[Rfam]
RNA: Purine riboswitch aptamer
RNA sequence: UUUCAUAGAUUCAUCAUCGCUCGUAUAAUCCUGAAAAUAUGGUUUGGGACUAUCUAGAGGGAACCGAUAACUUCCUAGCUACGAGAACAGUCGUUUUAUGC
Number, nucleotide and partner (000 for none) at each position: 001u000002u000003u000004c000005a000006u000007a000008g000009a000010u000011u000012c000013a000014u000015c000016a000017u000018c000019g000020c085021u084022c083023g082024u081025a080026u000027a000028a000029u049030c048031c047032u046033g045034a044035a043036a000037a000038u000039a000040u000041g000042g000043u035044u034045u033046g032047g031048g030049a029050c000051u000052a000053u000054c000055u000056a000057g000058a076059g075060g074061g073062a072063a000064c000065c000066g000067a000068u000069a000070a000071c000072u062073u061074c060075c059076u058077a000078g000079c000080u025081a024082c023083g022084a021085g020086a000087a000088c000089a000090g000091u000092c000093g000094u000095u000096u000097u000098a000099u000100g000101c000